[Rfam]
RNA sequence: GCAGGCAUGGCGGAAUUUGGUAGACGCGCAGGAUUUAGGUUCCUGUGUCUUUAUGAUGUGAGAGUUCGAGUCUCUCUGCCUGUA
Numbered sequence: 001g002c003a004g005g006c007a008u009g010g011c012g013g014a015a016u017u018u019g020g021u022a023g024a025c026g027c028g029c030a031g032g033a034u035u036u037a038g039g040u041u042c043c044u045g046u047g048u049c050u051u052u053a054u055g056a057u058g059u060g061a062g063a064g065u066u067c068g069a070g071u072c073u074c075u076c077u078g079c080c081u082g083u084a
Base pairs, nucleotide, nucleotide: 001083002082003081004080005079006078007077010027011026012025029045030044031043032042033041060076061075062074063073064072
tRNA: an 84-nucleotide RNA from Euglena gracilis. The source organism's lineage runs through Eukaryota, Euglenozoa, Euglenida, Euglenophyceae and Euglena. Rfam's curators put it in the seed alignment. Rfam classes the family as a transfer RNA.